[Rfam]
RNA sequence: GGCUGGACCAAUGGCAGUGGGUUACCAGAACUUACUAACAUUAGUGUCAUUGAAGUUGGUAUACAACCCCCACUGCUAAAUUCGACGGGCUAAAU
Number, nucleotide and partner (000 for none) at each position: 001g091002g090003c089004u088005g000006g086007a000008c084009c000010a000011a082012u000013g000014g000015c000016a074017g073018u072019g071020g070021g069022u000023u000024a000025c000026c000027a000028g000029a000030a000031c000032u000033u061034a060035c059036u000037a057038a056039c000040a000041u000042u000043a000044g000045u000046g000047u000048c000049a000050u000051u000052g000053a000054a000055g000056u038057u037058g000059g035060u034061a033062u000063a000064c000065a000066a000067c000068c000069c021070c020071c019072a018073c017074u016075g000076c000077u000078a000079a000080a000081u000082u011083c000084g008085a000086c006087g000088g004089g003090c002091u001092a000093a000094a000095u000